[Rfam]
RNA sequence: UCUGGCAGUAUUGUAGCAGCACAGAAUGGUUUGUGGUAACACUGAGAUGCAGGCCGUACUGUGCUGCAGCAGUAAAGCCGGA
Number, nucleotide and partner (000 for none) at each position: 001u082002c081003u080004g079005g078006c077007a000008g000009u000010a000011u000012u000013g070014u069015a000016g067017c066018a065019g064020c063021a062022c061023a060024g059025a000026a057027u056028g055029g054030u053031u052032u051033g050034u049035g048036g000037u000038a000039a000040c000041a000042c000043u000044g000045a000046g000047a000048u035049g034050c033051a032052g031053g030054c029055c028056g027057u026058a000059c024060u023061g022062u021063g020064c019065u018066g017067c016068a000069g014070c013071a000072g000073u000074a000075a000076a000077g006078c005079c004080g003081g002082a001
This 82-nucleotide RNA from Merluccius polli belongs to the Rfam family "mir-15 microRNA precursor family". On this family, see Lagos-Quintana et al., Science 2001: "Identification of novel genes coding for small expressed RNAs". This family represents the related mir-15a and mir-15b sequences. In humans miR-15a and miR-16 are clustered within 0.5 kb at 13q14. This region has been shown to be deleted in more than half of B cell chronic lymphocytic leukaemias (CLL). The family's consensus secondary structure was predicted with RNAalifold. The family has 164 seed sequences and 2,045 matches in Rfam 15.1.